Source information
This 307-nucleotide RNA from Durio zibethinus belongs to the Rfam family "Plant signal recognition particle RNA". Rfam classes the family as a non-coding RNA gene. Pairs were carried over by alignment from the consensus structure, which is taken from published work. The literature on the family includes a 2002 paper in Curr Opin Struct Biol by Wild et al., "Towards the structure of the mammalian signal recognition particle".
[Rfam]
RNA sequence: GCCGAGCUGGAUAACGUCAGCUUGUUACCCGAGUGGGGGCAUGAGGGUGAUGGAACGUUGGCUCAAUUCACCGAGUCGGUUCUGCUGUGGCUCUUCACUGGCCUGCCCGUUCCAAGCAAGGAGUUGAGCACUGGGACUUGUGCGAAGGCUCUGAGUCUCGUGGCUCCUAGAGUGGAUGGUACCGCGUGAGGCUGGAUUCACAGAGCCAGCGAAAACCUCCCUCUCUUUGCAGUGGAAGGAUGACAGGCCGGUGCCAUUAGGAACCACCAUGGCUAUGUGGGUUGAUCCUAAUUGAACCAUCACCUUU
Numbered sequence: 001g002c003c004g005a006g007c008u009g010g011a012u013a014a015c016g017u018c019a020g021c022u023u024g025u026u027a028c029c030c031g032a033g034u035g036g037g038g039g040c041a042u043g044a045g046g047g048u049g050a051u052g053g054a055a056c057g058u059u060g061g062c063u064c065a066a067u068u069c070a071c072c073g074a075g076u077c078g079g080u081u082c083u084g085c086u087g088u089g090g091c092u093c094u095u096c097a098c099u100g101g102c103c104u105g106c107c108c109g110u111u112c113c114a115a116g117c118a119a120g121g122a123g124u125u126g127a128g129c130a131c132u133g134g135g136a137c138u139u140g141u142g143c144g145a146a147g148g149c150u151c152u153g154a155g156u157c158u159c160g161u162g163g164c165u166c167c168u169a170g171a172g173u174g175g176a177u178g179g180u181a182c183c184g185c186g187u188g189a190g191g192c193u194g195g196a197u198u199c200a201c202a203g204a205g206c207c208a209g210c211g212a213a214a215a216c217c218u219c220c221c222u223c224u225c226u227u228u229g230c231a232g233u234g235g236a237a238g239g240a241u242g243a244c245a246g247g248c249c250g251g252u253g254c255c256a257u258u259a260g261g262a263a264c265c266a267c268c269a270u271g272g273c274u275a276u277g278u279g280g281g282u283u284g285a286u287c288c289u290a291a292u293u294g295a296a297c298c299a300u301c302a303c304c305u306u307u
Stems, first nucleotide, its partner, number of pairs: 001040003004023007028037003043307011056294002058291003061287001063285004068280004074274004078265006088256003092253001098251008107239002110237005116230008126166004132160009142149002167172001174220003178216001185211003192203003